Overview: Molybdenum/Tungsten riboswitch aptamer (Moco RNA motif): a 185-nucleotide RNA sequence from Mannheimia varigena. The organism belongs to Mannheimia varigena, within Bacteria. It scores 69 bits against the family's covariance model. The family's consensus secondary structure is taken from published work.

RNA sequence: UAACUUAGAGGAUACCGAGCUUGUGAACCUAAGUCUCUAUGAGAUAUGGUAGCAAGCCGUAAAGAAGCUGAACAAGCGGUCGUUUUUUGCGAAAAUUUUGCAAAAAAACCUAGCAACUUUACCAAUGGAUAAGCGAGAAAUGGUUUAUCCACUCGACUUCAGAAAGGUGUCUAUUUUUAACUUAA
Numbered sequence: 001u002a003a004c005u006u007a008g009a010g011g012a013u014a015c016c017g018a019g020c021u022u023g024u025g026a027a028c029c030u031a032a033g034u035c036u037c038u039a040u041g042a043g044a045u046a047u048g049g050u051a052g053c054a055a056g057c058c059g060u061a062a063a064g065a066a067g068c069u070g071a072a073c074a075a076g077c078g079g080u081c082g083u084u085u086u087u088u089g090c091g092a093a094a095a096u097u098u099u100g101c102a103a104a105a106a107a108a109c110c111u112a113g114c115a116a117c118u119u120u121a122c123c124a125a126u127g128g129a130u131a132a133g134c135g136a137g138a139a140a141u142g143g144u145u146u147a148u149c150c151a152c153u154c155g156a157c158u159u160c161a162g163a164a165a166g167g168u169g170u171c172u173a174u175u176u177u178u179a180a181c182u183u184a185a
Stems, first nucleotide, its partner, number of pairs: 011171006019057006027050003033045004059122005126151009136141001152162002